About this RNA: Shown here is an 87-nucleotide sequence from Populus alba, a member of the family "Small nucleolar RNA R11/Z151". Taxonomically the source falls in Populus (Eukaryota, Streptophyta, Magnoliopsida, Mesangiospermae). The base pairs follow the family's consensus structure, which was predicted with PFOLD.
RNA sequence: GGGCAAAUGAUGAUAACAUAAAUAUCUUAAGCGGAUUUCAGUGAGAUUUUCGAGUCAAUGAUCUGAUUGUUACACACACUGAAGCCC
Numbered sequence: 001g002g003g004c005a006a007a008u009g010a011u012g013a014u015a016a017c018a019u020a021a022a023u024a025u026c027u028u029a030a031g032c033g034g035a036u037u038u039c040a041g042u043g044a045g046a047u048u049u050u051c052g053a054g055u056c057a058a059u060g061a062u063c064u065g066a067u068u069g070u071u072a073c074a075c076a077c078a079c080u081g082a083a084g085c086c087c
Base pairs, nucleotide, nucleotide: 001087002086003085004084